This 499-nucleotide part of an RNA from Ordospora colligata belongs to the Rfam family "Microsporidia small subunit ribosomal RNA". Lineage of the source: Eukaryota > Fungi > Microsporidia > Ordosporidae > Ordospora. Its family is annotated with structural constituent of ribosome and ribosome in the Gene Ontology.
RNA sequence: UGACGGAAGGACACCACAAGGAGUGGAGUGUGCGGCUUAAUUUGACUCAACGCGGGGCAACUUACCAGGGCUGAAGAUGUGUGGAGAACUGAGAGGGGAGCACAUUGGCGGUGGUGCAUGGCCGUUUGAAACGGAUGGCGUGAGCUGAGGAUUAAUUUCCGGAAGGCGUGAGACCCACAAGACAGGUUGUUUGGAUGACAGGAGGGAGUGGAACAGAACAGGUCCGUUAUGCCCUGAGAUGUCCUGGGCGGCACGCGCACUACGAUACGUGUAUGAGAUGUGUGAGGGAUGAAUGUGUGGAAUGGCAUUCUGAACGUGGAAUUCCUAGUAAUGGUGGCUCAACAAGCCGACGUGAAUGUGUCCCUGUCCUUUGUACACACCGCCCGUCGCUAUCUGAGAUGGCACAUGGGACGAACACCGAGGGGUGUGAGUCUUCUGUGGUAGAUGAGAUAUAAGUCGUAACAUGGCUGCGGUUGGAGAACCAGCUGCAGGAUCAUCA
Numbered sequence: 001u002g003a004c005g006g007a008a009g010g011a012c013a014c015c016a017c018a019a020g021g022a023g024u025g026g027a028g029u030g031u032g033c034g035g036c037u038u039a040a041u042u043u044g045a046c047u048c049a050a051c052g053c054g055g056g057g058c059a060a061c062u063u064a065c066c067a068g069g070g071c072u073g074a075a076g077a078u079g080u081g082u083g084g085a086g087a088a089c090u091g092a093g094a095g096g097g098g099a100g101c102a103c104a105u106u107g108g109c110g111g112u113g114g115u116g117c118a119u120g121g122c123c124g125u126u127u128g129a130a131a132c133g134g135a136u137g138g139c140g141u142g143a144g145c146u147g148a149g150g151a152u153u154a155a156u157u158u159c160c161g162g163a164a165g166g167c168g169u170g171a172g173a174c175c176c177a178c179a180a181g182a183c184a185g186g187u188u189g190u191u192u193g194g195a196u197g198a199c200a201g202g203a204g205g206g207a208g209u210g211g212a213a214c215a216g217a218a219c220a221g222g223u224c225c226g227u228u229a230u231g232c233c234c235u236g237a238g239a240u241g242u243c244c245u246g247g248g249c250g251g252c253a254c255g256c257g258c259a260c261u262a263c264g265a266u267a268c269g270u271g272u273a274u275g276a277g278a279u280g281u282g283u284g285a286g287g288g289a290u291g292a293a294u295g296u297g298u299g300g301a302a303u304g305g306c307a308u309u310c311u312g313a314a315c316g317u318g319g320a321a322u323u324c325c326u327a328g329u330a331a332u333g334g335u336g337g338c339u340c341a342a343c344a345a346g347c348c349g350a351c352g353u354g355a356a357u358g359u360g361u362c363c364c365u366g367u368c369c370u371u372u373g374u375a376c377a378c379a380c381c382g383c384c385c386g387u388c389g390c391u392a393u394c395u396g397a398g399a400u401g402g403c404a405c406a407u408g409g410g411a412c413g414a415a416c417a418c419c420g421a422g423g424g425g426u427g428u429g430a431g432u433c434u435u436c437u438g439u440g441g442u443a444g445a446u447g448a449g450a451u452a453u454a455a456g457u458c459g460u461a462a463c464a465u466g467g468c469u470g471c472g473g474u475u476g477g478a479g480a481a482c483c484a485g486c487u488g489c490a491g492g493a494u495c496a497u498c499a
Stems, first nucleotide, its partner, number of pairs: 001377002003374003007371007016361002020325005025263001027261008035252002041056004065247007076106006089096002110235002113233004119229001120227001121223003124219004131169003136164001137146003149160003175211004183202001186199005267281004272276001286315001291310006331353003335349004382463001385459002388456001391452005397446001400443002403440004408435005415428005468491010

The sequence is in the family's curated seed alignment.